[Rfam]
RNA: Bacillaceae-1 RNA
RNA sequence: AAUCAAGGAAGGUCGAGUAAGUUCGCUACAUCCUGUAGCAAACUCGACCGACCUCACGUCGUGUGAG
Numbered sequence: 001a002a003u004c005a006a007g008g009a010a011g012g013u014c015g016a017g018u019a020a021g022u023u024c025g026c027u028a029c030a031u032c033c034u035g036u037a038g039c040a041a042a043c044u045c046g047a048c049c050g051a052c053c054u055c056a057c058g059u060c061g062u063g064u065g066a067g
Stems, first nucleotide, its partner, number of pairs: 011049007025039005053067005